A member of the RNA family "F6 TB sRNA" from Pseudonocardia bannensis, 57 nucleotides long. The family has 16 seed sequences and 310 matches in Rfam 15.1. It is annotated as a small RNA.
RNA sequence: CGUAUAGCCCCGUGGCGCUGUCGGACCCCCGACCUGGCAGCACCACGGGGCUUUCCA
Numbered sequence: 001c002g003u004a005u006a007g008c009c010c011c012g013u014g015g016c017g018c019u020g021u022c023g024g025a026c027c028c029c030c031g032a033c034c035u036g037g038c039a040g041c042a043c044c045a046c047g048g049g050g051c052u053u054u055c056c057a
Stems, first nucleotide, its partner, number of pairs: 002056001004054001007051009017041006